[Rfam]
RNA sequence: GAGACACCCCUAUGGUGCAAAACUUGCUUCAGUGGGGCUUUGGUGCUCACUGAGUCUGUCCCUUGAAUGUGUCACU
Number, nucleotide and partner (000 for none) at each position: 001g075002a000003g073004a072005c071006a070007c069008c000009c000010c000011u065012a064013u000014g062015g061016u000017g059018c058019a057020a000021a000022a055023c054024u000025u000026g000027c000028u000029u053030c052031a051032g050033u049034g048035g047036g046037g044038c043039u000040u000041u000042g000043g038044u037045g000046c036047u035048c034049a033050c032051u031052g030053a029054g023055u022056c000057u019058g018059u017060c000061c015062c014063u000064u012065g011066a000067a000068u000069g007070u006071g005072u004073c003074a000075c001076u000
RNA: mir-9229 microRNA precursor family
Organism: Myotis lucifugus